[Rfam]
RNA: Vault RNA
RNA sequence: GCGUCGGUUUAGCUCAGUGGUUACUUCGUUGCCACACUCCACCUUCUCCGGAGGGUCGAACCACGGGCGCGGUCUGGCGUUUUG
Numbered sequence: 001g002c003g004u005c006g007g008u009u010u011a012g013c014u015c016a017g018u019g020g021u022u023a024c025u026u027c028g029u030u031g032c033c034a035c036a037c038u039c040c041a042c043c044u045u046c047u048c049c050g051g052a053g054g055g056u057c058g059a060a061c062c063a064c065g066g067g068c069g070c071g072g073u074c075u076g077g078c079g080u081u082u083u084g
Base pairs, nucleotide, nucleotide: 002079003078004077005076006075007074012068013067014066015065017064018063019062020061025060026059027058028057